[Rfam]
RNA sequence: GGUGGUUCCUGGGUCAUGCACCCUGGAAUCAGGCUCCCUCCUCUCUGGUUCCGGGUGCGUCACCCGAGAACCACA
Numbered sequence: 001g002g003u004g005g006u007u008c009c010u011g012g013g014u015c016a017u018g019c020a021c022c023c024u025g026g027a028a029u030c031a032g033g034c035u036c037c038c039u040c041c042u043c044u045c046u047g048g049u050u051c052c053g054g055g056u057g058c059g060u061c062a063c064c065c066g067a068g069a070a071c072c073a074c075a
Base pairs, nucleotide, nucleotide: 002074003073005071006070007069008068010066011065012064013063014062016060017059019057020056021055022054023053025052026051027050028049029048030047031046032045033044
Background
mir-9223 microRNA precursor family: a 75-nucleotide sequence from Cnephaeus nilssonii. Rfam links the family to the GO terms miRNA-mediated post-transcriptional gene silencing and RISC complex. NCBI's taxonomy places the organism under Eukaryota, Teleostomi, Euteleostomi, Tetrapoda, Cnephaeus.